[Rfam]
RNA sequence: GUUGCACAUUUGAGGCCACAGCUGAAGAGCUCAUGUUGUGGCCCUAUCAGAUUCCAACAAAGCUGUGAAUUCUGCU
Dot-bracket structure: ...........[.[[[[..(((.((((.(.......).)]]]]]...(((.((......)).)))....))).)))
Numbered sequence: 001g002u003u004g005c006a007c008a009u010u011u012g013a014g015g016c017c018a019c020a021g022c023u024g025a026a027g028a029g030c031u032c033a034u035g036u037u038g039u040g041g042c043c044c045u046a047u048c049a050g051a052u053u054c055c056a057a058c059a060a061a062g063c064u065g066u067g068a069a070u071u072c073u074g075c076u
Stems, first nucleotide, its partner, number of pairs: 012044001014043004020076003024072003027039001029037001048065003052061002

Rfam assigns this 76-nucleotide RNA sequence from Alligator mississippiensis to the family "Mammalian CPEB3 ribozyme". The mammalian CPEB3 ribozyme is a self cleaving RNA located in the second intron of the CPEB3 gene which belongs to a family of genes regulating messenger RNA polyadenylation.